[Rfam]
Nucleotides: 074
Base pairs, nucleotide, nucleotide: 001072002071003070006067007066008065010063011062012061013060014059015058016057019054020053021052022051023050024049026047027046028045029044030043
Number, partner (000 for none) and nucleotide at each position: 001072g002071u003070u004000u005000c006067u007066g008065u009000c010063u011062u012061u013060g014059g015058u016057u017000a018000c019054c020053u021052a022051g023050c024049u025000g026047u027046a028045u029044g030043a031000g032000u033000a034000u035000a036000a037000c038000u039000a040000a041000u042000g043030u044029c045028a046027u047026a048000a049024a050023g051022c052021u053020a054019g055000a056000c057016a058015a059014c060013c061012g062011a063010a064000c065008g066007u067006a068000u069000a070003a071002a072001c073000c074000a